[Rfam]
RNA sequence: AGCUUUGUGAAUCCGUGCAGAGUUUUGGUCAGACACCAACCAACUAGGGUUGAUCAGACUUCCAAGAUAAGUGAAGUU
Numbered sequence: 001a002g003c004u005u006u007g008u009g010a011a012u013c014c015g016u017g018c019a020g021a022g023u024u025u026u027g028g029u030c031a032g033a034c035a036c037c038a039a040c041c042a043a044c045u046a047g048g049g050u051u052g053a054u055c056a057g058a059c060u061u062c063c064a065a066g067a068u069a070a071g072u073g074a075a076g077u078u
Stems, first nucleotide, its partner, number of pairs: 002077005008071001011068003016064002020061003024058007
Shown here is a 78-nucleotide RNA from Schistosoma haematobium, a member of the family "mir-3492 microRNA precursor family". The base pairs follow the family's consensus structure, which was predicted with RNAalifold. It scores 61 bits against the family's covariance model.